[Rfam]
RNA: Glycine riboswitch aptamer
RNA sequence: GCCACUCUGGAAAGCAGGCGUCCGACACGCCUCGCCCACGGUGAAAGUCGGCACCCGGCCUCCGGGUCCGGCGAAUCUCUCAGGCUCACGACAGAGGGGGCUCC
Numbered sequence: 001g002c003c004a005c006u007c008u009g010g011a012a013a014g015c016a017g018g019c020g021u022c023c024g025a026c027a028c029g030c031c032u033c034g035c036c037c038a039c040g041g042u043g044a045a046a047g048u049c050g051g052c053a054c055c056c057g058g059c060c061u062c063c064g065g066g067u068c069c070g071g072c073g074a075a076u077c078u079c080u081c082a083g084g085c086u087c088a089c090g091a092c093a094g095a096g097g098g099g100g101c102u103c104c
Base pairs, nucleotide, nucleotide: 002099003098005096006095007094008093009092016032017031018030019029034085035084036083038080041079043077047072048071049070050069051068